[Rfam]
RNA sequence: UGCUGGCUUUCCAUCAGCCUGCGUUACUGAAGAGGCACACCUUCAUUGCCGAAAGUGCGGUCGGGUCACUCCCUCCAAUCUAAGGCAGACAAAGCGGAACAGAGCCUAGGCGGGCUUCGUUCCACCGUUCGCGCAGUUGCGCAUGUCAU
Dot-bracket structure: (((.((((.......)))).)))..........((((.........))))......(((.........................(.........).......(((((....)))))...............)))...............

Shown here is a 149-nucleotide sequence from Rhizobium sp. RU20A, a member of the family "speF leader". On this family, see Corbino et al., Genome Biol 2005: "Evidence for a second class of S-adenosylmethionine riboswitches and other regulatory RNA motifs in alpha-proteobacteria". Gene Ontology term of the family: regulation of gene expression. The base pairs follow the family's consensus structure, which was predicted with RNAalifold. The source organism's lineage runs through Bacteria, Pseudomonadota, Alphaproteobacteria, Rhizobiaceae and Rhizobium. The match comes from Rfam's covariance-model search (102 bits). From the family's description: This family is a putative regulatory RNA structure that is found upstream of the speF gene encoding ornithine decarboxylase in Agrobacterium tumefaciens and other alpha-proteobacteria. It is annotated as a cis-regulatory leader.